[Rfam]
A member of the RNA family "Bacterial large subunit ribosomal RNA", 229 nucleotides of a longer RNA.
RNA sequence: GAGUCAGUGAUGCGUGGCGAGGUUAACCCGUGUGGGGUAGUCGUAGCGAAAGCGAGUCUGAAGAGGGCGGUGAGUCGCGUGUUCUGGACCCGAAGCGGAGUGAUCUACCCAUGGCCAGGUUGAAGCGUGUGUAAGAGCACGUGGAGGACCGGACCCACUUCAGUUGAAAAUGGAGGGGAUGAGCUGUGGGUAGGGGUGAAAGGCUAAUCAAACUCCGUGAUAGCUGGUU
Numbered sequence: 001g002a003g004u005c006a007g008u009g010a011u012g013c014g015u016g017g018c019g020a021g022g023u024u025a026a027c028c029c030g031u032g033u034g035g036g037g038u039a040g041u042c043g044u045a046g047c048g049a050a051a052g053c054g055a056g057u058c059u060g061a062a063g064a065g066g067g068c069g070g071u072g073a074g075u076c077g078c079g080u081g082u083u084c085u086g087g088a089c090c091c092g093a094a095g096c097g098g099a100g101u102g103a104u105c106u107a108c109c110c111a112u113g114g115c116c117a118g119g120u121u122g123a124a125g126c127g128u129g130u131g132u133a134a135g136a137g138c139a140c141g142u143g144g145a146g147g148a149c150c151g152g153a154c155c156c157a158c159u160u161c162a163g164u165u166g167a168a169a170a171u172g173g174a175g176g177g178g179a180u181g182a183g184c185u186g187u188g189g190g191u192a193g194g195g196g197u198g199a200a201a202g203g204c205u206a207a208u209c210a211a212a213c214u215c216c217g218u219g220a221u222a223g224c225u226g227g228u229u
Stems, first nucleotide, its partner, number of pairs: 005086003009083010021042004027036003046053002056068004089227002092224001096217006105193011116181001118150004125142006154178003158175005195205003
The match comes from Rfam's covariance-model search (2645 bits).